Rfam assigns this 215-nucleotide sequence from [Flexibacter] sp. ATCC 35208 to the family "Group II catalytic intron D1-D4-6". The organism belongs to Chitinophaga, within Bacteria. A search with the family's covariance model found it, with a score of 85 bits.
RNA sequence: CAAUUCUGCCCGACAAGGUCUAGUCAACUACUGGAAGCGAGUCUUGCGUAGUCAUUAUAGAUGAUGGCGCGAAGUGUAGACAGCGACUGCUGACGGUAUGCUAUUGAGACUCGAAACUGUCCUGAAUGUUGAGGCUUUAGUUGUUCGAAAUGCUUAAGCAACAUCAAACCUGCGUUAUUGACGAUUAGGGGCGAUUCGACCGGGGGCUAAGAACA
Numbered sequence: 001c002a003a004u005u006c007u008g009c010c011c012g013a014c015a016a017g018g019u020c021u022a023g024u025c026a027a028c029u030a031c032u033g034g035a036a037g038c039g040a041g042u043c044u045u046g047c048g049u050a051g052u053c054a055u056u057a058u059a060g061a062u063g064a065u066g067g068c069g070c071g072a073a074g075u076g077u078a079g080a081c082a083g084c085g086a087c088u089g090c091u092g093a094c095g096g097u098a099u100g101c102u103a104u105u106g107a108g109a110c111u112c113g114a115a116a117c118u119g120u121c122c123u124g125a126a127u128g129u130u131g132a133g134g135c136u137u138u139a140g141u142u143g144u145u146c147g148a149a150a151u152g153c154u155u156a157a158g159c160a161a162c163a164u165c166a167a168a169c170c171u172g173c174g175u176u177a178u179u180g181a182c183g184a185u186u187a188g189g190g191g192c193g194a195u196u197c198g199a200c201c202g203g204g205g206g207c208u209a210a211g212a213a214c215a
Stems, first nucleotide, its partner, number of pairs: 010034003017029003021184001023182002037084002041081004045076002047071003052067006105209001106207001110204004128200006134159003139154003164194002169189001171187002